[Rfam]
This 257-nucleotide part of an RNA from Physcomitrium patens belongs to the Rfam family "Eukaryotic large subunit ribosomal RNA". It scores 3372 bits against the family's covariance model. The family's consensus secondary structure is taken from published work.
RNA sequence: CGAAUGGAAGCUGCGGGUGUGCCCCGGUUGGAUGUGGAACGGCUUCGGCUGGUCUGCCGCUCAACGCGGGGCACUGGUCAGCGUGGGCUACUUCGGCGGGACAAGAGCAGGAUGUAGUUUCCUGCCCCCCAUGCCGCCGAGGUGGCCGAGGAACGAAGCGUGCGGCCCCCUCUCGGGGGGGUCGUGGGACUCGUCCCAACUGCACGCUCGGGACGCUGGCGUAUUGAGCUCUUCAUCCGACCCGUCUUGAAACACGG
Numbered sequence: 001c002g003a004a005u006g007g008a009a010g011c012u013g014c015g016g017g018u019g020u021g022c023c024c025c026g027g028u029u030g031g032a033u034g035u036g037g038a039a040c041g042g043c044u045u046c047g048g049c050u051g052g053u054c055u056g057c058c059g060c061u062c063a064a065c066g067c068g069g070g071g072c073a074c075u076g077g078u079c080a081g082c083g084u085g086g087g088c089u090a091c092u093u094c095g096g097c098g099g100g101a102c103a104a105g106a107g108c109a110g111g112a113u114g115u116a117g118u119u120u121c122c123u124g125c126c127c128c129c130c131a132u133g134c135c136g137c138c139g140a141g142g143u144g145g146c147c148g149a150g151g152a153a154c155g156a157a158g159c160g161u162g163c164g165g166c167c168c169c170c171u172c173u174c175g176g177g178g179g180g181g182u183c184g185u186g187g188g189a190c191u192c193g194u195c196c197c198a199a200c201u202g203c204a205c206g207c208u209c210g211g212g213a214c215g216c217u218g219g220c221g222u223a224u225u226g227a228g229c230u231c232u233u234c235a236u237c238c239g240a241c242c243c244g245u246c247u248u249g250a251a252a253c254a255c256g257g
Stems, first nucleotide, its partner, number of pairs: 001239002004236005009230004017074001020073007078219007242257004